[Rfam]
RNA sequence: UCGUGGGGACGGCCCCGCGGGUUCAUCUCACUGACCGGGACGGCCCGG
Numbered sequence: 001u002c003g004u005g006g007g008g009a010c011g012g013c014c015c016c017g018c019g020g021g022u023u024c025a026u027c028u029c030a031c032u033g034a035c036c037g038g039g040a041c042g043g044c045c046c047g048g
Stems, first nucleotide, its partner, number of pairs: 001020008035048005

Rfam assigns this 48-nucleotide RNA from Pseudogemmobacter humi to the family "Guanidine-II riboswitch aptamer (mini-ykkC)". A search with the family's covariance model found it, with a score of 37 bits. On this family, see Weinberg et al., Nucleic Acids Res 2007: "Identification of 22 candidate structured RNAs in bacteria using the CMfinder comparative genomics pipeline". Taxonomically the source falls in Pseudogemmobacter (Bacteria, Pseudomonadota, Alphaproteobacteria, Paracoccaceae).